[Rfam]
RNA: Small nucleolar RNA SNORA28
RNA sequence: AGAAUACCUUCUGAGAAAAUGUAGCAAUGGCAAAACUGUCUAACACAAACUGAACUUGCUAUAGCAACAAAGUCUAGCCUAUUGUGAUAUGCUCUCCUCUUUGAGACAAGCCAUUAUAUAGACUUAAUGGUU
Numbered sequence: 001a002g003a004a005u006a007c008c009u010u011c012u013g014a015g016a017a018a019a020u021g022u023a024g025c026a027a028u029g030g031c032a033a034a035a036c037u038g039u040c041u042a043a044c045a046c047a048a049a050c051u052g053a054a055c056u057u058g059c060u061a062u063a064g065c066a067a068c069a070a071a072g073u074c075u076a077g078c079c080u081a082u083u084g085u086g087a088u089a090u091g092c093u094c095u096c097c098u099c100u101u102u103g104a105g106a107c108a109a110g111c112c113a114u115u116a117u118a119u120a121g122a123c124u125u126a127a128u129g130g131u132u
Stems, first nucleotide, its partner, number of pairs: 009054003012047002015044001017041001019039003070125007080118003085113002088110001093106004